[Rfam]
RNA sequence: CUGCCACCAAUUAAGAUGACUUUGCUCUCCCCACUGGGGGCCUGCUGUGCAGUGGUUGCAAACAGUAGUGUAUGCAGCCUGUUGUUUGUAUUGGUUGCCCUAAAGGACUUUGGAGACAGCC
Numbered sequence: 001c002u003g004c005c006a007c008c009a010a011u012u013a014a015g016a017u018g019a020c021u022u023u024g025c026u027c028u029c030c031c032c033a034c035u036g037g038g039g040g041c042c043u044g045c046u047g048u049g050c051a052g053u054g055g056u057u058g059c060a061a062a063c064a065g066u067a068g069u070g071u072a073u074g075c076a077g078c079c080u081g082u083u084g085u086u087u088g089u090a091u092u093g094g095u096u097g098c099c100c101u102a103a104a105g106g107a108c109u110u111u112g113g114a115g116a117c118a119g120c121c
Stems, first nucleotide, its partner, number of pairs: 002051003019046001021044001025040004064109003075097005
Rfam assigns this 121-nucleotide sequence from Neogale vison to the family "Small nucleolar RNA SNORA70".
It is annotated as an H/ACA-box small nucleolar RNA.
Rfam's curators write: snoRNA U70 seems to be exclusive to mammals and is a member of the H/ACA class of snoRNA which contain H (ANANNA) and ACA box motifs. H/ACA box snoRNAs are involved in the conversion of uridines to pseudouridines (5-ribosyluracil) a constituent of structural RNAs (transfer, ribosomal, small nuclear, and small nucleolar).
Rfam links the family to the GO terms nucleolus and RNA processing.
The match comes from Rfam's covariance-model search (84 bits).